Rfam assigns this 371-nucleotide RNA from Paeniglutamicibacter cryotolerans to the family "Bacterial RNase P class A".
RNA sequence: CGGGAUGACCGGACGAUCGCGUGUCGCUUUGCGGCCCGAGGAACGUCCGGGCUCCACAGGACAGGGUGGUGGGUAACGCCCACUCGGGGUAACCCGCAGGACAGUGCCACAGAAAAUAGACCGCCCGCAUUCGUGCGGGUAAGGGUGAAACGGUGGUGUAAGAGACCACCAGCGCCCCAGGUGACUGGGGUGGCUAGGUAAACCCCACCCGGAGCAAGGUCAUACAGGCUGCUUUAUGAGGGCUGUUCGCCCCAUGCAGCCGGGUGGACCGCUCGAGGGCAUCGGCAACGGUGCUCCUAGAUGGAUGAUCGUCACCGGCAAACGGGUAACCGCUGUCGGCACAAAACCCGGCGUAUAGGUCAUCCCGUCCA
Numbered sequence: 001c002g003g004g005a006u007g008a009c010c011g012g013a014c015g016a017u018c019g020c021g022u023g024u025c026g027c028u029u030u031g032c033g034g035c036c037c038g039a040g041g042a043a044c045g046u047c048c049g050g051g052c053u054c055c056a057c058a059g060g061a062c063a064g065g066g067u068g069g070u071g072g073g074u075a076a077c078g079c080c081c082a083c084u085c086g087g088g089g090u091a092a093c094c095c096g097c098a099g100g101a102c103a104g105u106g107c108c109a110c111a112g113a114a115a116a117u118a119g120a121c122c123g124c125c126c127g128c129a130u131u132c133g134u135g136c137g138g139g140u141a142a143g144g145g146u147g148a149a150a151c152g153g154u155g156g157u158g159u160a161a162g163a164g165a166c167c168a169c170c171a172g173c174g175c176c177c178c179a180g181g182u183g184a185c186u187g188g189g190g191u192g193g194c195u196a197g198g199u200a201a202a203c204c205c206c207a208c209c210c211g212g213a214g215c216a217a218g219g220u221c222a223u224a225c226a227g228g229c230u231g232c233u234u235u236a237u238g239a240g241g242g243c244u245g246u247u248c249g250c251c252c253c254a255u256g257c258a259g260c261c262g263g264g265u266g267g268a269c270c271g272c273u274c275g276a277g278g279g280c281a282u283c284g285g286c287a288a289c290g291g292u293g294c295u296c297c298u299a300g301a302u303g304g305a306u307g308a309u310c311g312u313c314a315c316c317g318g319c320a321a322a323c324g325g326g327u328a329a330c331c332g333c334u335g336u337c338g339g340c341a342c343a344a345a346a347c348c349c350g351g352c353g354u355a356u357a358g359g360u361c362a363u364c365c366c367g368u369c370c371a
Stems, first nucleotide, its partner, number of pairs: 001367010011356001012313007020038002023035005043354003047351005052214004059248004064210005069083005084098001085096004099205002104203002106199003121144002123140007152170006172194001173192008218270004228260005240252004277296008

A reference for the family is Frank and Pace (1998), "Ribonuclease P: unity and diversity in a tRNA processing ribozyme", Annu Rev Biochem.